Annotation:
mir-2985 microRNA precursor family: a 71-nucleotide sequence from Cynoglossus semilaevis. Rfam 15.1 lists 2,000 matches to the family in 637 species. From the family's description: RNAs can be post-transcriptional modified, in micro RNAs (miRNA) editing of pre-mRNA is a common process. Rfam links the family to the GO terms RISC complex and miRNA-mediated post-transcriptional gene silencing.
RNA sequence: UGCAUUAAGGUGGGUGGGAUAAUAUAACAAUACCCUCCCUGUUGUUAUAGGAUUCCACCUACCCUGAUGUC
Numbered sequence: 001u002g003c004a005u006u007a008a009g010g011u012g013g014g015u016g017g018g019a020u021a022a023u024a025u026a027a028c029a030a031u032a033c034c035c036u037c038c039c040u041g042u043u044g045u046u047a048u049a050g051g052a053u054u055c056c057a058c059c060u061a062c063c064c065u066g067a068u069g070u071c
Stems, first nucleotide, its partner, number of pairs: 003069005009063009019053002023049010
Pairs were carried over by alignment from the consensus structure, which was predicted with RNAalifold.
On this family, see Gunaratne et al., BMC Genomics 2011: "Song exposure regulates known and novel microRNAs in the zebra finch auditory forebrain".